SAM riboswitch aptamer (S box leader): an 89-nucleotide RNA from Hymenobacter sp. PAMC 26628. A search with the family's covariance model found it, with a score of 67 bits. The family's consensus secondary structure is taken from published work. The source organism's lineage runs through Bacteria, Pseudomonadati, Cytophagia, Hymenobacteraceae and Hymenobacter. Rfam 15.1 lists 9,625 matches to the family in 4,158 species.
RNA sequence: UUUUUAUACAGAGGCGCGGAGAGACAGGCUCGAUGAACCGCCGGCAACCCCCACAACGUGGAACGGUGCCAAGUCCUGACAUAUAAAAC
Numbered sequence: 001u002u003u004u005u006a007u008a009c010a011g012a013g014g015c016g017c018g019g020a021g022a023g024a025c026a027g028g029c030u031c032g033a034u035g036a037a038c039c040g041c042c043g044g045c046a047a048c049c050c051c052c053a054c055a056a057c058g059u060g061g062a063a064c065g066g067u068g069c070c071a072a073g074u075c076c077u078g079a080c081a082u083a084u085a086a087a088a089c
Base pairs, nucleotide, nucleotide: 002088003087004086005085006084007083008082013042014041015040016039021031022030023029025078026077027076028075043070044069045068046067048066049065051061052060053059074081